[Rfam]
RNA: Fluoride riboswitch aptamer (crcB RNA motif)
RNA sequence: AUUAUUUAUAGAGAUGGUGCUCUCUAUAACUGCCAGGGCUGGUUGAUGGUGCCUGUUAUAUA
Dot-bracket structure: .........[[[[..((((((]]]]......((((....))))....)))))).........
Numbered sequence: 001a002u003u004a005u006u007u008a009u010a011g012a013g014a015u016g017g018u019g020c021u022c023u024c025u026a027u028a029a030c031u032g033c034c035a036g037g038g039c040u041g042g043u044u045g046a047u048g049g050u051g052c053c054u055g056u057u058a059u060a061u062a
Stems, first nucleotide, its partner, number of pairs: 010025004016053006032043004